Rfam assigns this 119-nucleotide sequence from Streptomyces palmae to the family "Streptomyces-metK RNA". The family's consensus secondary structure is taken from published work. A search with the family's covariance model found it, with a score of 106 bits.

RNA sequence: UCGAGACGGAAUGCCCGACCGGUGGAAACGCCGGAUAAACUGGCCCAGGAACCGAGCCGGGCGCAGCCCCCGGACGGUUCCAGCCAUGAACAGCCAGCAGCCGCUGCAACCCCAGGGAG
Numbered sequence: 001u002c003g004a005g006a007c008g009g010a011a012u013g014c015c016c017g018a019c020c021g022g023u024g025g026a027a028a029c030g031c032c033g034g035a036u037a038a039a040c041u042g043g044c045c046c047a048g049g050a051a052c053c054g055a056g057c058c059g060g061g062c063g064c065a066g067c068c069c070c071c072g073g074a075c076g077g078u079u080c081c082a083g084c085c086a087u088g089a090a091c092a093g094c095c096a097g098c099a100g101c102c103g104c105u106g107c108a109a110c111c112c113c114a115g116g117g118a119g
Base pairs, nucleotide, nucleotide: 048081049080050079051078052077053076057073058072059071060070061069095106096105097104098103